[Rfam]
RNA sequence: GAAGUUUUGGAGUGCGUGUCAGGGGUGCAUUUGCAUUUGGGUUUUUAGUUGUAAAUGCACUAUCUGGUACGACACGCCAAGACGG
Numbered sequence: 001g002a003a004g005u006u007u008u009g010g011a012g013u014g015c016g017u018g019u020c021a022g023g024g025g026u027g028c029a030u031u032u033g034c035a036u037u038u039g040g041g042u043u044u045u046u047a048g049u050u051g052u053a054a055a056u057g058c059a060c061u062a063u064c065u066g067g068u069a070c071g072a073c074a075c076g077c078c079a080a081g082a083c084g085g
Stems, first nucleotide, its partner, number of pairs: 008079003015071009025060001027058009
This 85-nucleotide RNA from Ceratitis capitata belongs to the Rfam family "mir-277 microRNA precursor family". Its family is annotated with RISC complex and miRNA-mediated post-transcriptional gene silencing in the Gene Ontology. A search with the family's covariance model found it, with a score of 73 bits. NCBI's taxonomy places the organism under Eukaryota, Panarthropoda, Arthropoda, Muscomorpha, Ceratitis.